Shown here is a 100-nucleotide sequence, a member of the family "PhotoRC-II RNA". The family's RNA type in Rfam is cis-regulatory element. Rfam's curators put it in the seed alignment. The family's consensus secondary structure is taken from published work.
RNA sequence: AUAAACUUACACACUGCUCCCAACCGAGACCUACGUAGGCAGUAUAAUACAUCGUCUCUCAUAUCCAGUAGCGAGGGGUUGCUGGAAAUAAGUUUCGCAU
Numbered sequence: 001a002u003a004a005a006c007u008u009a010c011a012c013a014c015u016g017c018u019c020c021c022a023a024c025c026g027a028g029a030c031c032u033a034c035g036u037a038g039g040c041a042g043u044a045u046a047a048u049a050c051a052u053c054g055u056c057u058c059u060c061a062u063a064u065c066c067a068g069u070a071g072c073g074a075g076g077g078g079u080u081g082c083u084g085g086a087a088a089u090a091a092g093u094u095u096c097g098c099a100u
Base pairs, nucleotide, nucleotide: 014042015041016040017039018038019035026058027057028056029055030054064086065085066084067083068082069081070080
Dot-bracket structure: .............((((((......[[[[[....)..)))))...........]]]]].....(((((((.........)))))))..............